Background:
The family of this 178-nucleotide RNA from Psophia crepitans is "TUC338". For this family Rfam cites "Expression and functional role of a transcribed noncoding RNA with an ultraconserved element in hepatocellular carcinoma" (Braconi et al., Proc Natl Acad Sci U S A, 2011). Lineage of the source: Eukaryota > Eumetazoa > Sarcopterygii > Saurischia > Psophia.
RNA sequence: UUGACAGCACUGGAGACUAAAGUCCUGAAUUUAUCCAUUGAACAGGUUCAGCACAGGUAGCAGCAGUGCAAGGUUCUCCACACUGCCCUGCCAAUGUGCCUCAACUCUGAUCUGGAGGGACCACCUCUAGGGGUGAGAGCAUGGUUCAGUCUCCAUGCUUCUUCAGUCCUUGGAUUCU
Numbered sequence: 001u002u003g004a005c006a007g008c009a010c011u012g013g014a015g016a017c018u019a020a021a022g023u024c025c026u027g028a029a030u031u032u033a034u035c036c037a038u039u040g041a042a043c044a045g046g047u048u049c050a051g052c053a054c055a056g057g058u059a060g061c062a063g064c065a066g067u068g069c070a071a072g073g074u075u076c077u078c079c080a081c082a083c084u085g086c087c088c089u090g091c092c093a094a095u096g097u098g099c100c101u102c103a104a105c106u107c108u109g110a111u112c113u114g115g116a117g118g119g120a121c122c123a124c125c126u127c128u129a130g131g132g133g134u135g136a137g138a139g140c141a142u143g144g145u146u147c148a149g150u151c152u153c154c155a156u157g158c159u160u161c162u163u164c165a166g167u168c169c170u171u172g173g174a175u176u177c178u
Stems, first nucleotide, its partner, number of pairs: 002165003007159001011155008020146002024139001030137006038109001040107001051099005063086004112130007
Dot-bracket structure: .(((..(...((((((((.((..(.....((((((..(.(..........(((((.......((((................))))........))))).......).)..(((((((.....))))))).)))))).).....)).))))))))...)...))).............
Pairs were carried over by alignment from the consensus structure, which was predicted with WAR. A search with the family's covariance model found it, with a score of 141 bits.